[Rfam]
The record is a 66-nucleotide sequence from Pseudomonas matsuisoli, which matches "Pseudomonas sRNA P26" in Rfam. It scores 73 bits against the family's covariance model. About the family: This small RNA (sRNA) was computationally identified in the genome of the opportunistic pathogen Pseudomonas aeruginosa and its expression verified by northern blot analysis. P26 is conserved across many Gammaproteobacteria species and appears to be consistently located between the DNA directed RNA polymerase (beta subunit) and 50S ribosomal protein L7/L12 genes. On this family, see Livny et al., Nucleic Acids Res 2006: "Identification of 17 Pseudomonas aeruginosa sRNAs and prediction of sRNA-encoding genes in 10 diverse pathogens using the bioinformatic tool sRNAPredict2".
RNA sequence: GAUCUUGCGCAAACAGCCCAAGCGUUUCGCGAAAGGCUGAUGGCUGGUGGCUUUUGCCACCGGCCU
Number, nucleotide and partner (000 for none) at each position: 001g000002a000003u000004c000005u000006u000007g000008c000009g000010c000011a000012a000013a000014c039015a038016g037017c036018c035019c000020a000021a000022g030023c029024g000025u000026u000027u000028c000029g023030c022031g000032a000033a000034a000035g018036g017037c016038u015039g014040a000041u000042g065043g064044c063045u062046g061047g060048u059049g058050g057051c056052u000053u000054u000055u000056g051057c050058c049059a048060c047061c046062g045063g044064c043065c042066u000